Shown here is a 157-nucleotide RNA sequence from Paenibacillus anaericanus, a member of the family "SAM riboswitch aptamer (S box leader)".
Rfam 15.1 lists 9,625 matches to the family in 4,158 species.
Taxonomically the source falls in Paenibacillus (Bacteria, Bacilli, Caryophanales, Paenibacillaceae).
Gene Ontology term of the family: regulation of gene expression.

RNA sequence: UUCUUAUCGAGAGUGGCGGAGGGAAAGGCCCGAUGAAGCCCAGCAACCAAUUUGUUACUAAUGCGGUCUAUGAUGUACUGUGUUAUUGGACGAAUGAAUGGUGCUAAUUCCUUCAAAAUCACGCAGUUUGUGUGCGAAUGAUUUUGGCAGAUGAGAA
Numbered sequence: 001u002u003c004u005u006a007u008c009g010a011g012a013g014u015g016g017c018g019g020a021g022g023g024a025a026a027g028g029c030c031c032g033a034u035g036a037a038g039c040c041c042a043g044c045a046a047c048c049a050a051u052u053u054g055u056u057a058c059u060a061a062u063g064c065g066g067u068c069u070a071u072g073a074u075g076u077a078c079u080g081u082g083u084u085a086u087u088g089g090a091c092g093a094a095u096g097a098a099u100g101g102u103g104c105u106a107a108u109u110c111c112u113u114c115a116a117a118a119u120c121a122c123g124c125a126g127u128u129u130g131u132g133u134g135c136g137a138a139u140g141a142u143u144u145u146g147g148c149a150g151a152u153g154a155g156a157a
Stems, first nucleotide, its partner, number of pairs: 001157008013041001015040003021031003025113004042105004047101002109149001114146008